Overview: Shown here is a 61-nucleotide RNA sequence from Pseudanabaenaceae cyanobacterium LEGE 13415, a member of the family "Glutamine riboswitch aptamer (glnA leader)". A reference for the family is Ren et al. (2015), "Structural and Dynamic Basis for Low-Affinity, High-Selectivity Binding of L-Glutamine by the Glutamine Riboswitch", Cell Rep. Its family is annotated with glutamine binding in the Gene Ontology.
[Rfam]
RNA sequence: AACGUUCAUCCUUGGUAUGCACCGAGGACGGAAGUAAGGAGUUCUCCUGAAGGAACGCGCC
Numbered sequence: 001a002a003c004g005u006u007c008a009u010c011c012u013u014g015g016u017a018u019g020c021a022c023c024g025a026g027g028a029c030g031g032a033a034g035u036a037a038g039g040a041g042u043u044c045u046c047c048u049g050a051a052g053g054a055a056c057g058c059g060c061c
Stems, first nucleotide, its partner, number of pairs: 003057005009028008031058001037048003

Lineage of the source: Bacteria > Bacillati > Cyanobacteriota > Cyanophyceae > Pseudanabaenaceae.